[Rfam]
RNA sequence: ACCGCCGCCGGACGGAACUGGUCGCGAGGGUUGGGGAGCCCGAUGACCGAUCGGAUUUCGAGGCCGCUCGGGUUGAUAGGGAGCCCGACGCGAACCGCUCUGGCGAAGGAG
Numbered sequence: 001a002c003c004g005c006c007g008c009c010g011g012a013c014g015g016a017a018c019u020g021g022u023c024g025c026g027a028g029g030g031u032u033g034g035g036g037a038g039c040c041c042g043a044u045g046a047c048c049g050a051u052c053g054g055a056u057u058u059c060g061a062g063g064c065c066g067c068u069c070g071g072g073u074u075g076a077u078a079g080g081g082a083g084c085c086c087g088a089c090g091c092g093a094a095c096c097g098c099u100c101u102g103g104c105g106a107a108g109g110a111g
Stems, first nucleotide, its partner, number of pairs: 006105007013060004018054007028041005062096002065092003069087005
About this RNA
The family of this 111-nucleotide RNA sequence is "Actinomyces-1 RNA". The family's consensus secondary structure is taken from published work.